[Rfam]
RNA sequence: CUGGAAAAGGCGAUGAUGUUUCCAAGCACAUAUCCGAUGCCUAUGUGUGGAUGAUGAUAUCACUGAGUCUUUUCCGA
Numbered sequence: 001c002u003g004g005a006a007a008a009g010g011c012g013a014u015g016a017u018g019u020u021u022c023c024a025a026g027c028a029c030a031u032a033u034c035c036g037a038u039g040c041c042u043a044u045g046u047g048u049g050g051a052u053g054a055u056g057a058u059a060u061c062a063c064u065g066a067g068u069c070u071u072u073u074c075c076g077a
Stems, first nucleotide, its partner, number of pairs: 002076005008070004
RNA: Small nucleolar RNA SNORD121A